RNA sequence: CUCUUAUCAAGAGAGGUGGAGGGAAAGGGCCCGAUGAAACCCGGCAACCUGUAGCAAUACGUGGUGCCAAUUCCUGCGGCGGGAGCUGCAAGAUAAGAG
Numbered sequence: 001c002u003c004u005u006a007u008c009a010a011g012a013g014a015g016g017u018g019g020a021g022g023g024a025a026a027g028g029g030c031c032c033g034a035u036g037a038a039a040c041c042c043g044g045c046a047a048c049c050u051g052u053a054g055c056a057a058u059a060c061g062u063g064g065u066g067c068c069a070a071u072u073c074c075u076g077c078g079g080c081g082g083g084a085g086c087u088g089c090a091a092g093a094u095a096a097g098a099g
Base pairs, nucleotide, nucleotide: 001099002098003097004096005095006094007093008092013042015041016040017039021032022031023030027075028074029073043068044067045066046065048064049063050061051060052059053058072091077088078087079086080085